[Rfam]
RNA sequence: CUCCGCGGAUGCCGUGAGGCCUCUGUCCGCUCUGGGGCCCUGGCGCACCUUCCCCGGUGCCAGGACCCGCCAGCGGGCGGGCAGGGACCUGACGGCAUCCGCCGCAUCUU
Numbered sequence: 001c002u003c004c005g006c007g008g009a010u011g012c013c014g015u016g017a018g019g020c021c022u023c024u025g026u027c028c029g030c031u032c033u034g035g036g037g038c039c040c041u042g043g044c045g046c047a048c049c050u051u052c053c054c055c056g057g058u059g060c061c062a063g064g065a066c067c068c069g070c071c072a073g074c075g076g077g078c079g080g081g082c083a084g085g086g087a088c089c090u091g092a093c094g095g096c097a098u099c100c101g102c103c104g105c106a107u108c109u110u
Base pairs, nucleotide, nucleotide: 010097011096012095013094014093015092018089019088021086022085023084024083025082026081027080028079029078030077031075032073033072034070035068036067037066039064040063041062042061043060044059045058046057